[Rfam]
RNA sequence: AGCCUUACGCAAGGGGAGAUAUCGUUACAAAUGACGCUCAGCGGAUGUGCGAUUUCUGCUAGUUGAAAACUACACCAAUUUAAACUUCUAUUAUUCUAUUCUCUAAUAGAUUAAUGGCAAUUUCUGGGGCCCUCUAGGGC
Number, nucleotide and partner (000 for none) at each position: 001a000002g000003c000004c000005u000006u000007a000008c000009g000010c000011a000012a000013g000014g000015g000016g000017a000018g000019a000020u000021a053022u052023c051024g050025u049026u000027a048028c047029a046030a000031a000032u000033g000034a000035c043036g042037c041038u000039c000040a000041g037042c036043g035044g000045a000046u029047g028048u027049g025050c024051g023052a022053u021054u000055u000056c000057u000058g000059c000060u000061a000062g000063u000064u000065g000066a000067a000068a000069a000070c000071u000072a000073c000074a000075c000076c000077a000078a000079u000080u000081u000082a000083a000084a000085c000086u000087u117088c116089u000090a000091u114092u113093a112094u000095u110096c109097u108098a107099u106100u105101c000102u000103c000104u000105a100106a099107u098108a097109g096110a095111u000112u093113a092114a091115u000116g088117g087118c000119a000120a000121u000122u000123u000124c000125u000126g000127g000128g000129g140130c139131c138132c137133u000134c000135u000136a000137g132138g131139g130140c129

Source information: This 140-nucleotide sequence from Cryptosporidium parvum belongs to the Rfam family "U4 spliceosomal RNA". Lineage of the source: Eukaryota > Alveolata > Coccidia > Cryptosporidium > Cryptosporidium parvum.